[Rfam]
RNA sequence: GCCUGCCUGUGCGGUCUACGCAGGCGGGCCGAUCUGUACCGACGCCGCCCGCUCCGGCACGGGGCGGCACAGAUGAAGGGG
Numbered sequence: 001g002c003c004u005g006c007c008u009g010u011g012c013g014g015u016c017u018a019c020g021c022a023g024g025c026g027g028g029c030c031g032a033u034c035u036g037u038a039c040c041g042a043c044g045c046c047g048c049c050c051g052c053u054c055c056g057g058c059a060c061g062g063g064g065c066g067g068c069a070c071a072g073a074u075g076a077a078g079g080g081g
Base pairs, nucleotide, nucleotide: 001029002028003027004026005025006024007023008022009021010020011019032074033073034072035071036070037069044068045067046066047065048064049063050062
This 81-nucleotide RNA from Collinsella sp. An2 belongs to the Rfam family "aspS RNA".
By type it is a cis-regulatory element.
The family's consensus secondary structure is taken from published work.
A search with the family's covariance model found it, with a score of 76 bits.